[Rfam]
RNA sequence: UCAGAUAGUUGAGCGGCUGCUGUAAAAUGGAAUUUAUUUCACUUUAUAGAGGAAAGUCCGGGCUCCACAGGAAUACGACGCCGGUUAACGGCCGGCAGAGGCAACUCUAGGGAUAGUGCCACAGAAAAUAGACCGUCUGUUUAUUAUUUAUUACUAUACAGAUAAGGGUGAAACGGUGCGGUAAGAGCGCAACGCAACUCUGGUAACAGAGUUGGCAGGGUAAACCCCGUCGGGUGCAAGACCUAAUAGGAAAGAUAGAUCUCCAUCUUUUGAUGAGAGGUCGGGGGUAUUCCUGCCCCUCUUUCGGGUUGGUCGCGUGAGGGCAAUAGCAAUAUUGCUCCAAGAUGAAUAGUCGCUUCGUUCUUUACGAACGGACAAAACCCGGCUUAUAGACUAUCUGACUCU
Number, nucleotide and partner (000 for none) at each position: 001u401002c400003a399004g398005a397006u396007a395008g394009u393010u392011g390012a357013g356014c355015g354016g353017c352018u351019g000020c049021u048022g047023u046024a045025a044026a043027a000028u041029g040030g039031a038032a000033u000034u000035u000036a000037u000038u031039u030040c029041a028042c000043u026044u025045u024046a023047u022048a021049g020050a000051g000052g000053a000054a388055a387056g386057u000058c385059c384060g383061g382062g381063c236064u000065c234066c233067a000068c000069a000070g000071g293072a000073a291074u000075a000076c232077g231078a230079c229080g228081c095082c094083g093084g092085u091086u000087a000088a000089c000090g000091g085092c084093c083094g082095g081096c110097a108098g107099a106100g105101g000102c000103a000104a000105c100106u099107c098108u097109a000110g096111g227112g226113a000114u000115a000116g225117u224118g221119c220120c219121a000122c000123a000124g000125a000126a000127a000128a000129u000130a000131g000132a000133c167134c166135g163136u162137c161138u160139g159140u158141u000142u156143a155144u000145u000146a000147u000148u000149u000150a000151u000152u000153a000154c000155u143156a142157u000158a140159c139160a138161g137162a136163u135164a000165a000166g134167g133168g000169u000170g000171a000172a000173a000174c000175g193176g000177u191178g190179c189180g188181g000182u000183a000184a000185g000186a000187g000188c180189g179190c178191a177192a000193c175194g216195c214196a213197a212198c211199u210200c209201u208202g207203g000204u000205a000206a000207c202208a201209g200210a199211g198212u197213u196214g195215g000216c194217a000218g000219g120220g119221u118222a000223a000224a117225c116226c112227c111228c080229g079230u078231c077232g076233g066234g065235u000236g063237c000238a000239a000240g314241a313242c312243c311244u000245a000246a000247u000248a000249g000250g305251a304252a303253a302254g301255a300256u000257a000258g000259a000260u000261c000262u000263c000264c000265a000266u000267c000268u000269u000270u000271u000272g000273a000274u000275g000276a000277g000278a000279g000280g000281u000282c000283g000284g298285g297286g296287g000288u000289a000290u000291u073292c000293c071294u000295g000296c286297c285298c284299c000300u255301c254302u253303u252304u251305c250306g000307g000308g000309u000310u000311g243312g242313u241314c240315g000316c000317g000318u000319g000320a000321g340322g339323g338324c337325a336326a335327u334328a333329g000330c000331a000332a000333u328334a327335u326336u325337g324338c323339u322340c321341c000342a000343a000344g000345a000346u000347g000348a000349a000350u000351a018352g017353u016354c015355g014356c013357u012358u000359c000360g000361u000362u000363c000364u000365u000366u000367a000368c000369g000370a000371a000372c000373g000374g000375a000376c000377a000378a000379a000380a000381c062382c061383c060384g059385g058386c056387u055388u054389a000390u011391a000392g010393a009394c008395u007396a006397u005398c004399u003400g002401a001402c000403u000404c000405u000
The family of this 405-nucleotide sequence from an Acetobacteraceae bacterium is "Bacterial RNase P class A". By type it is a ribozyme. It scores 312 bits against the family's covariance model. Taxonomically the source falls in Acetobacteraceae (Bacteria, Pseudomonadati, Pseudomonadota, Acetobacterales).